[Rfam]
RNA sequence: CAAAAAACCAGCGUCGCGAAGGCGCUGGCUCGGACGACAACAACCGUCAUGCCGUACAGGUCACGGCUAACGGCGACGCGAAGCGUCUGGAAGACCGGAGACUGGUUGUCAGCCAGGGGUCCGGCAAACAAUGUGAGCGGAUUCUAGGGAGGGUUUUAUAGAUCGUCAACACUAUAAAAUCGAGAAAACAUAACAAAAAGUAA
Numbered sequence: 001c002a003a004a005a006a007a008c009c010a011g012c013g014u015c016g017c018g019a020a021g022g023c024g025c026u027g028g029c030u031c032g033g034a035c036g037a038c039a040a041c042a043a044c045c046g047u048c049a050u051g052c053c054g055u056a057c058a059g060g061u062c063a064c065g066g067c068u069a070a071c072g073g074c075g076a077c078g079c080g081a082a083g084c085g086u087c088u089g090g091a092a093g094a095c096c097g098g099a100g101a102c103u104g105g106u107u108g109u110c111a112g113c114c115a116g117g118g119g120u121c122c123g124g125c126a127a128a129c130a131a132u133g134u135g136a137g138c139g140g141a142u143u144c145u146a147g148g149g150a151g152g153g154u155u156u157u158a159u160a161g162a163u164c165g166u167c168a169a170c171a172c173u174a175u176a177a178a179a180u181c182g183a184g185a186a187a188a189c190a191u192a193a194c195a196a197a198a199a200g201u202a203a
Base pairs, nucleotide, nucleotide: 008028009027010026011025012024013023014022044105045104046103051067052066053065054064075087076086077085078084079083132171133170134169137166138165139164140163143162144161145160146159